[Rfam]
RNA sequence: CGGAAGGCUGGCGCGGACGUAAUCCUCGCAAACCUGGUCAGGUCCGGAAGGAAGCAGCCAAUGUGGGACGUUGCGGGUCGCGUCCAGUCUUCCACCU
Numbered sequence: 001c002g003g004a005a006g007g008c009u010g011g012c013g014c015g016g017a018c019g020u021a022a023u024c025c026u027c028g029c030a031a032a033c034c035u036g037g038u039c040a041g042g043u044c045c046g047g048a049a050g051g052a053a054g055c056a057g058c059c060a061a062u063g064u065g066g067g068a069c070g071u072u073g074c075g076g077g078u079c080g081c082g083u084c085c086a087g088u089c090u091u092c093c094a095c096c097u
Base pairs, nucleotide, nucleotide: 004091005090006089007088008087010084011083012082013081014080015079018075019074020073021072022071023070025067026066027065028064029063030062035060036059037058038057043052044051045050
This 97-nucleotide sequence from Pararhodospirillum photometricum belongs to the Rfam family "Bacterial small signal recognition particle RNA". The base pairs follow the family's consensus structure, which is taken from published work. A search with the family's covariance model found it, with a score of 59 bits. Rfam classes the family as a non-coding RNA gene. The source organism's lineage runs through Bacteria, Pseudomonadota, Alphaproteobacteria, Rhodospirillaceae and Pararhodospirillum photometricum. From the family's description: The signal recognition particle (SRP) is a universally conserved ribonucleoprotein involved in the co-translational targeting of proteins to membranes.